[Rfam]
RNA sequence: ACUGCAGGCCGCGCCAUCGAUCCCAGCUUUUGGUUGGGGUAGGAAAGUCCGGACAGCACAGGGCAGCGCAUCCCGCUAACGGCGGGACAUUCCGCCUCGCCACAAGCGAGAGCCGGGAUCGAGCCAGUGCCACAGAAAAUAGGAGCCUUCGUUCGGGCGGCAACGCCUGAAUUCGUCACAGCCCGCCUGCGCUUCAACGCCAGGGGGGAAGUGAGGGUGAUCGUGAAAACGUGGGGUAAGAGCCCACGGCGCCGCAUCGGAAGGUGCGACGCGGGUAAACCUUGCGCGCUGAAAUGCCAUGUAUAGGAAUCGUUAGUGGCUGCUCGUCACUGUUCGCCACAUCCGCCUUCGGGCACACGCGGCGGGCCGGUUCCAGGGUAGGCAGCUCGAGGCGACCAGCAAUGGGCGUCCCAGAUAAAUGAUGGCGGUCUCGUCUCAGGCGAGAUACAGAAUCCGGCUUACAGGCCUGCAGUAUUU
Numbered sequence: 001a002c003u004g005c006a007g008g009c010c011g012c013g014c015c016a017u018c019g020a021u022c023c024c025a026g027c028u029u030u031u032g033g034u035u036g037g038g039g040u041a042g043g044a045a046a047g048u049c050c051g052g053a054c055a056g057c058a059c060a061g062g063g064c065a066g067c068g069c070a071u072c073c074c075g076c077u078a079a080c081g082g083c084g085g086g087a088c089a090u091u092c093c094g095c096c097u098c099g100c101c102a103c104a105a106g107c108g109a110g111a112g113c114c115g116g117g118a119u120c121g122a123g124c125c126a127g128u129g130c131c132a133c134a135g136a137a138a139a140u141a142g143g144a145g146c147c148u149u150c151g152u153u154c155g156g157g158c159g160g161c162a163a164c165g166c167c168u169g170a171a172u173u174c175g176u177c178a179c180a181g182c183c184c185g186c187c188u189g190c191g192c193u194u195c196a197a198c199g200c201c202a203g204g205g206g207g208g209a210a211g212u213g214a215g216g217g218u219g220a221u222c223g224u225g226a227a228a229a230c231g232u233g234g235g236g237u238a239a240g241a242g243c244c245c246a247c248g249g250c251g252c253c254g255c256a257u258c259g260g261a262a263g264g265u266g267c268g269a270c271g272c273g274g275g276u277a278a279a280c281c282u283u284g285c286g287c288g289c290u291g292a293a294a295u296g297c298c299a300u301g302u303a304u305a306g307g308a309a310u311c312g313u314u315a316g317u318g319g320c321u322g323c324u325c326g327u328c329a330c331u332g333u334u335c336g337c338c339a340c341a342u343c344c345g346c347c348u349u350c351g352g353g354c355a356c357a358c359g360c361g362g363c364g365g366g367c368c369g370g371u372u373c374c375a376g377g378g379u380a381g382g383c384a385g386c387u388c389g390a391g392g393c394g395a396c397c398a399g400c401a402a403u404g405g406g407c408g409u410c411c412c413a414g415a416u417a418a419a420u421g422a423u424g425g426c427g428g429u430c431u432c433g434u435c436u437c438a439g440g441c442g443a444g445a446u447a448c449a450g451a452a453u454c455c456g457g458c459u460u461a462c463a464g465g466c467c468u469g470c471a472g473u474a475u476u477u
Stems, first nucleotide, its partner, number of pairs: 001473010011462001012427007020040009045460003049457005054291004066287005071087002074084003088121001089119006122282002127280002129276003143222002145218009230248006251270001253268006295384004306374007391410004396405003
Dot-bracket structure: ((((((((((((((((((.(((((((((...)))))))))....[[[.[[[[[((((........(((((((.(((.....))).))(((((((...................)))))).)((...(((((...........(((((((((((........................................................)))))))))..)).......((((((.......))))))..(.((((((....)))))).)...)))..)))))))))))))...((((.......(((((((.......................................................)))))))......))))......((((.(((....))).))))..........))))))).........................]]]]]]]].).))))))))))....